[Rfam]
RNA: MIR397 microRNA precursor family
Nucleotides: 118
Stems, first nucleotide, its partner, number of pairs: 006115006013108016030091003
Number, partner (000 for none) and nucleotide at each position: 001000u002000g003000g004000a005000u006115a007114u008113c009112a010111c011110u012000a013108a014107u015106u016105g017104u018103g019102u020101u021100c022099a023098g024097c025096a026095c027094u028093g029000a030091a031090a032089c033000a034000c035000u036000u037000u038000a039000a040000a041000u042000u043000u044000u045000c046000a047000u048000u049000u050000c051000u052000a053000g054000u055000a056000c057000a058000g059000u060000u061000u062000a063000a064000u065000u066000g067000u068000g069000c070000a071000g072000c073000u074000g075000a076000a077000a078000a079000a080000c081000a082000u083000u084000a085000a086000a087000g088000u089032g090031u091030u092000u093028c094027a095026g096025u097024g098023c099022u100021g101020a102019a103018c104017a105016c106015a107014a108013u109000u110011a111010g112009u113008g114007a115006u116000a117000u118000c